[Rfam]
RNA sequence: AAAGUAAGUCAGCCUAAUUUCUUAGGGUCUUAAAUCAAGACAAAAAGAAAGCGGGGAAACCAACCUUGGGGCGUAUUUCUAAUGGAUCGCAAGUUAGAAAAGGAUAACUCUCAAUCCUAGCCCGUCAGCUAACCUCGUCGGCAGUGGGAGAAGACUG
Numbered sequence: 001a002a003a004g005u006a007a008g009u010c011a012g013c014c015u016a017a018u019u020u021c022u023u024a025g026g027g028u029c030u031u032a033a034a035u036c037a038a039g040a041c042a043a044a045a046a047g048a049a050a051g052c053g054g055g056g057a058a059a060c061c062a063a064c065c066u067u068g069g070g071g072c073g074u075a076u077u078u079c080u081a082a083u084g085g086a087u088c089g090c091a092a093g094u095u096a097g098a099a100a101a102g103g104a105u106a107a108c109u110c111u112c113a114a115u116c117c118u119a120g121c122c123c124g125u126c127a128g129c130u131a132a133c134c135u136c137g138u139c140g141g142c143a144g145u146g147g148g149a150g151a152a153g154a155c156u157g
Stems, first nucleotide, its partner, number of pairs: 012142003018050006051138006061068002069123003077099007102117004
The family of this 157-nucleotide sequence from Rippkaea orientalis is "c-di-AMP riboswitch aptamer (ydaO/yuaA leader)". About the family: This family represents a conserved RNA structure found upstream of the ydaO and yuaA genes in Bacillus subtilis and related genes in other bacteria.